Record summary
Shown here is a 135-nucleotide RNA from Trichosporon asahii, a member of the family "U4 spliceosomal RNA". From the family's description: U4 small nuclear RNA (U4 snRNA) is a component of the major U2-dependent spliceosome. The match comes from Rfam's covariance-model search (74 bits). The family's consensus secondary structure is taken from published work. Rfam classes the family as a spliceosomal small nuclear RNA.
RNA sequence: AUCCGCAUGCUCGGGAGAGAGGCUCUGACAGUGAGGAUUUAUCCGAGUCGAGCCAUUUGCUAGUUGAAAAAAGCAAAUCCACUCCUUCUAUUCGAUCGAUUACGAUUGUUUAGAGAAUUUCUGGAACCCCCCCUA
Numbered sequence: 001a002u003c004c005g006c007a008u009g010c011u012c013g014g015g016a017g018a019g020a021g022g023c024u025c026u027g028a029c030a031g032u033g034a035g036g037a038u039u040u041a042u043c044c045g046a047g048u049c050g051a052g053c054c055a056u057u058u059g060c061u062a063g064u065u066g067a068a069a070a071a072a073g074c075a076a077a078u079c080c081a082c083u084c085c086u087u088c089u090a091u092u093c094g095a096u097c098g099a100u101u102a103c104g105a106u107u108g109u110u111u112a113g114a115g116a117a118u119u120u121c122u123g124g125a126a127c128c129c130c131c132c133c134u135a
Stems, first nucleotide, its partner, number of pairs: 021054005027049003035044003086115005093108006